[Rfam]
RNA sequence: AUAUAUCAUGCGGGAGAGAUUGCGGGGUGACUCGCAACGCCGAAGGCGCAACCGCCCCGGAAACGCUCAGGCACAAUGGACCGCACGAUAUGC
Numbered sequence: 001a002u003a004u005a006u007c008a009u010g011c012g013g014g015a016g017a018g019a020u021u022g023c024g025g026g027g028u029g030a031c032u033c034g035c036a037a038c039g040c041c042g043a044a045g046g047c048g049c050a051a052c053c054g055c056c057c058c059g060g061a062a063a064c065g066c067u068c069a070g071g072c073a074c075a076a077u078g079g080a081c082c083g084c085a086c087g088a089u090a091u092g093c
Base pairs, nucleotide, nucleotide: 006088007087009085010084011083012082013081020037021036022035023034039072040071041070042068043067046066047065048064052060053059
Glycine riboswitch aptamer: a 93-nucleotide RNA sequence from Asticcacaulis endophyticus. Taxonomically the source falls in Asticcacaulis (Bacteria, Pseudomonadati, Pseudomonadota, Alphaproteobacteria). The pairing is the family consensus, mapped onto this sequence.